[Rfam]
RNA sequence: AAACAGCCCCCUAUGUAUUGGAUCUUUGACACUUUUAGCCCCCAAGACCACUUUUGACUUAGUCUUCGCUGACGUGACAUCGACAAUGGUCGACACGUGGCACCUCACUUAAGGGAUAUGGGCGCCACGUCAGCGAAGACUAGGUCAAAAGUGGCCUUGUGGCCAAAACUGCCAAAGAUCCAAUACAUAGGCGGUUGUUU
Numbered sequence: 001a002a003a004c005a006g007c008c009c010c011c012u013a014u015g016u017a018u019u020g021g022a023u024c025u026u027u028g029a030c031a032c033u034u035u036u037a038g039c040c041c042c043c044a045a046g047a048c049c050a051c052u053u054u055u056g057a058c059u060u061a062g063u064c065u066u067c068g069c070u071g072a073c074g075u076g077a078c079a080u081c082g083a084c085a086a087u088g089g090u091c092g093a094c095a096c097g098u099g100g101c102a103c104c105u106c107a108c109u110u111a112a113g114g115g116a117u118a119u120g121g122g123c124g125c126c127a128c129g130u131c132a133g134c135g136a137a138g139a140c141u142a143g144g145u146c147a148a149a150a151g152u153g154g155c156c157u158u159g160u161g162g163c164c165a166a167a168a169c170u171g172c173c174a175a176a177g178a179u180c181c182a183a184u185a186c187a188u189a190g191g192c193g194g195u196u197g198u199u200u
Stems, first nucleotide, its partner, number of pairs: 001200002004197005012189017030171002033168004038163003043159003072130002075127002078124001080122002
RNA: MIR2619 microRNA precursor family